[Rfam]
RNA sequence: GCCUCGUUAGCUCAGUUGGUAGAGCGUGAGACUUUUAAUCUCAAGGUCAGGGGAUCGAGACCCCUACGGGGCU
Number, nucleotide and partner (000 for none) at each position: 001g072002c071003c070004u069005c068006g067007u066008u000009a000010g025011c024012u023013c022014a000015g000016u000017u000018g000019g000020u000021a000022g013023a012024g011025c010026g000027u043028g042029a041030g040031a039032c000033u000034u000035u000036u000037a000038a000039u031040c030041u029042c028043a027044a000045g000046g000047u000048c000049a065050g064051g063052g062053g061054a000055u000056c000057g000058a000059g000060a000061c053062c052063c051064c050065u049066a007067c006068g005069g004070g003071g002072c001073u000
Annotation
The record is a 73-nucleotide RNA sequence from Globodera rostochiensis, which matches "tRNA" in Rfam. It is annotated as a transfer RNA. Lineage of the source: Eukaryota > Eumetazoa > Nematoda > Tylenchomorpha > Globodera. The family's consensus secondary structure is taken from published work.